Rfam assigns this 153-nucleotide sequence from Bacteroides sp. 9_1_42FAA to the family "Group II catalytic intron D1-D4-3". Group II introns are found in rRNA, tRNA and mRNA of organelles in fungi, plants and protists, and also in mRNA in bacteria.
RNA sequence: UCCAUCGUGAGUUGGAAUCGGCAAACAUCUGGUCUGACGCACAGAAACUUGAUAUGAAGGCUUAAGGAUGUGGAUGAGUUUGCAUAACAAAACAAAGUCCAUAGUUAUCCGGAACAUCCGAAGUAAAUCAAGCAGACAUAAGAUGGAAAGAAU
Numbered sequence: 001u002c003c004a005u006c007g008u009g010a011g012u013u014g015g016a017a018u019c020g021g022c023a024a025a026c027a028u029c030u031g032g033u034c035u036g037a038c039g040c041a042c043a044g045a046a047a048c049u050u051g052a053u054a055u056g057a058a059g060g061c062u063u064a065a066g067g068a069u070g071u072g073g074a075u076g077a078g079u080u081u082g083c084a085u086a087a088c089a090a091a092a093c094a095a096a097g098u099c100c101a102u103a104g105u106u107a108u109c110c111g112g113a114a115c116a117u118c119c120g121a122a123g124u125a126a127a128u129c130a131a132g133c134a135g136a137c138a139u140a141a142g143a144u145g146g147a148a149a150g151a152a153u
Stems, first nucleotide, its partner, number of pairs: 001016004006011001022150001026145005032137005048132006060124003066119006072100004078093004